[Rfam]
RNA sequence: UGAUUAAAAAAUAACUUAUUCCAUAGCCACUUUGAAUUACGAUAAUUACUAUGUUAAUUUACAAGAUUAUAAUAACUCUUUACUAAGUAGUUUACUAUAAUGUUAUGGUAAAUAUCUCCAUGUGUUAUAGCAACCCAACUAUCGUAAAUAUGUAUUGAAAUUAUCGUAAAUUAGUAUAUAAAAUUAUCAUAAAUAGAGGUGGCUACAGAGUAACUUAUUUUGUAACUG
Numbered sequence: 001u002g003a004u005u006a007a008a009a010a011a012u013a014a015c016u017u018a019u020u021c022c023a024u025a026g027c028c029a030c031u032u033u034g035a036a037u038u039a040c041g042a043u044a045a046u047u048a049c050u051a052u053g054u055u056a057a058u059u060u061a062c063a064a065g066a067u068u069a070u071a072a073u074a075a076c077u078c079u080u081u082a083c084u085a086a087g088u089a090g091u092u093u094a095c096u097a098u099a100a101u102g103u104u105a106u107g108g109u110a111a112a113u114a115u116c117u118c119c120a121u122g123u124g125u126u127a128u129a130g131c132a133a134c135c136c137a138a139c140u141a142u143c144g145u146a147a148a149u150a151u152g153u154a155u156u157g158a159a160a161u162u163a164u165c166g167u168a169a170a171u172u173a174g175u176a177u178a179u180a181a182a183a184u185u186a187u188c189a190u191a192a193a194u195a196g197a198g199g200u201g202g203c204u205a206c207a208g209a210g211u212a213a214c215u216u217a218u219u220u221u222g223u224a225a226c227u228g
Stems, first nucleotide, its partner, number of pairs: 001228002004225003008221007016213006024205010037192003041188007050178013065165003069161002074155001079148005087142006093132001095130009107117002
A member of the RNA family "MIR6217 microRNA precursor family" from Miscanthus lutarioriparius, 228 nucleotides long. Its family is annotated with miRNA-mediated post-transcriptional gene silencing and RISC complex in the Gene Ontology. Lineage of the source: Eukaryota > Embryophyta > Tracheophyta > Poaceae > Miscanthus.